[Rfam]
RNA sequence: GUGCCUUAAACUAAUGAGUAAGGAAAAUUUACAAGCCUUGGUGACGCUUGGCUUCAACAGUACAAUCUGUUACCUUUAAUUUUUUGAAGGGUAAAGGUCGUCCCCUUGACUGGCCCGCCUACUUUGCGGGCUAGUCGGGCGAUAGCGAUCUGCCCU
Numbered sequence: 001g002u003g004c005c006u007u008a009a010a011c012u013a014a015u016g017a018g019u020a021a022g023g024a025a026a027a028u029u030u031a032c033a034a035g036c037c038u039u040g041g042u043g044a045c046g047c048u049u050g051g052c053u054u055c056a057a058c059a060g061u062a063c064a065a066u067c068u069g070u071u072a073c074c075u076u077u078a079a080u081u082u083u084u085u086g087a088a089g090g091g092u093a094a095a096g097g098u099c100g101u102c103c104c105c106u107u108g109a110c111u112g113g114c115c116c117g118c119c120u121a122c123u124u125u126g127c128g129g130g131c132u133a134g135u136c137g138g139g140c141g142a143u144a145g146c147g148a149u150c151u152g153c154c155c156u
Base pairs, nucleotide, nucleotide: 004023005022006021007020008019033054034053035052036051037050040047056071057070058069059068088156089155090154091153092152095151096150097149098148099147100146101145105139106138108136109135110134111133112132114130115129116128117127118126
The family of this 156-nucleotide sequence from Acyrthosiphon pisum is "U12 minor spliceosomal RNA". For this family Rfam cites "Pre-mRNA splicing: the discovery of a new spliceosome doubles the challenge" (Tarn and Steitz, Trends Biochem Sci, 1997). Its Rfam clan is "U2 clan".